[Rfam]
Nucleotides: 049
Stems, first nucleotide, its partner, number of pairs: 003049003007044004015038004020033004
Number, partner (000 for none) and nucleotide at each position: 001000u002000c003049g004048g005047u006000c007044c008043c009042g010041g011000u012000u013000c014000c015038c016037g017036u018035c019000c020033g021032c022031g023030c024000a025000u026000c027000u028000c029000c030023g031022c032021g033020c034000c035018g036017g037016c038015g039000a040000c041010c042009c043008g044007g045000c046000g047005g048004c049003c

Source information: The record is a 49-nucleotide RNA from Actinospica robiniae, which matches "L31-Actinobacteria ribosomal protein leader" in Rfam. It is one of the family's seed sequences. Rfam classes the family as a cis-regulatory leader.